[Rfam]
RNA sequence: CGGAUAGCCCCGUGUUGUUGUCUGACCCCCGACCCCGACGGCAAUGCGGGGCAAUCCC
Numbered sequence: 001c002g003g004a005u006a007g008c009c010c011c012g013u014g015u016u017g018u019u020g021u022c023u024g025a026c027c028c029c030c031g032a033c034c035c036c037g038a039c040g041g042c043a044a045u046g047c048g049g050g051g052c053a054a055u056c057c058c
Stems, first nucleotide, its partner, number of pairs: 002057004007052016

This 58-nucleotide sequence from Mycobacterium tuberculosis belongs to the Rfam family "F6 TB sRNA". The source organism's lineage runs through Bacteria, Bacillati, Actinomycetota, Actinomycetes and Mycobacterium tuberculosis. The family's RNA type in Rfam is small RNA. It is one of the family's seed sequences. The literature on the family includes a 2009 paper in Mol Microbiol by Arnvig and Young, "Identification of small RNAs in Mycobacterium tuberculosis".